Iron response element I: a 35-nucleotide sequence from Hipposideros armiger. The organism belongs to Hipposideros, within Eukaryota. Its family is annotated with response to iron ion in the Gene Ontology. It is annotated as a cis-regulatory element. Pairs were carried over by alignment from the consensus structure, which is taken from published work.
RNA sequence: CGGUGUCUUGCUUCCACAGUGAUUGGACAGAACAG
Numbered sequence: 001c002g003g004u005g006u007c008u009u010g011c012u013u014c015c016a017c018a019g020u021g022a023u024u025g026g027a028c029a030g031a032a033c034a035g
Stems, first nucleotide, its partner, number of pairs: 001035001003033002006031003010028001012027003016023001017021001